A member of the RNA family "Glycine riboswitch aptamer" from Methylobacterium terrae, 105 nucleotides long.
Its family is annotated with glycine biosynthetic process in the Gene Ontology.
It scores 72 bits against the family's covariance model.

RNA sequence: UUGAUGGUCGCGGGAGAGACCGGCCCCGAGCCGGCACCGAAGGGGAAAGGUGCGCCAGCCGUGCUGCGCGCCGAAGCUCUCAGGUCAAAGGACCGCGAUCGAGAG
Numbered sequence: 001u002u003g004a005u006g007g008u009c010g011c012g013g014g015a016g017a018g019a020c021c022g023g024c025c026c027c028g029a030g031c032c033g034g035c036a037c038c039g040a041a042g043g044g045g046a047a048a049g050g051u052g053c054g055c056c057a058g059c060c061g062u063g064c065u066g067c068g069c070g071c072c073g074a075a076g077c078u079c080u081c082a083g084g085u086c087a088a089a090g091g092a093c094c095g096c097g098a099u100c101g102a103g104a105g
Base pairs, nucleotide, nucleotide: 006100007099008098009097010096011095012094013093020034021033022032023031036085037084038083039081040080043079044078045077049072050071051070052069053068054067055066